[Rfam]
Shown here is a 36-nucleotide RNA from Phyllostomus discolor, a member of the family "Iron response element I". Rfam 15.1 lists 6,829 matches to the family in 599 species. The family's consensus secondary structure is taken from published work. Rfam classes the family as a cis-regulatory element.
RNA sequence: UUGUUUCUUGCUUCAAUAGUUAUUUGGACAGAACAG
Dot-bracket structure: (((((.((.(.(((((.......)))))))))))))